Record summary:
This 81-nucleotide RNA from Danaus plexippus belongs to the Rfam family "mir-2765 microRNA precursor family". It scores 86 bits against the family's covariance model. Taxonomically the source falls in Danaus plexippus (Eukaryota, Arthropoda, Dicondylia, Danaini).
RNA sequence: AACGUAUCUGGGUGUGGUAACUCCACCACCGUUGGCGUUGGUUCAGCCAACGGGGGCAGAGUUCCUGUCCCUAGAUGCGAC
Numbered sequence: 001a002a003c004g005u006a007u008c009u010g011g012g013u014g015u016g017g018u019a020a021c022u023c024c025a026c027c028a029c030c031g032u033u034g035g036c037g038u039u040g041g042u043u044c045a046g047c048c049a050a051c052g053g054g055g056g057c058a059g060a061g062u063u064c065c066u067g068u069c070c071c072u073a074g075a076u077g078c079g080a081c
Stems, first nucleotide, its partner, number of pairs: 003079010016066002019063005026056002029053008